[Rfam]
RNA: azaaromatic riboswitch aptamer (yjdF RNA)
Nucleotides: 096
Stems, first nucleotide, its partner, number of pairs: 005087005011081001022042002025040004043052003062073004
Number, partner (000 for none) and nucleotide at each position: 001000a002000u003000a004000a005087a006086u007085a008084a009083a010000u011081a012000u013000a014000a015000a016000a017000a018000c019000a020000c021000a022042g023041u024000u025040c026039u027038g028037g029000u030000u031000g032000g033000u034000a035000g036000u037028c038027c039026a040025g041023a042022c043052g044051c045050a046000g047000c048000a049000a050045u051044g052043u053000a054000a055000g056000u057000a058000a059000c060000c061000u062073g063072c064071c065070u066000c067000c068000u069000u070065a071064g072063g073062u074000u075000g076000u077000c078000c079000a080000u081011u082000c083009u084008u085007u086006a087005u088000a089000a090000a091000a092000a093000a094000a095000u096000u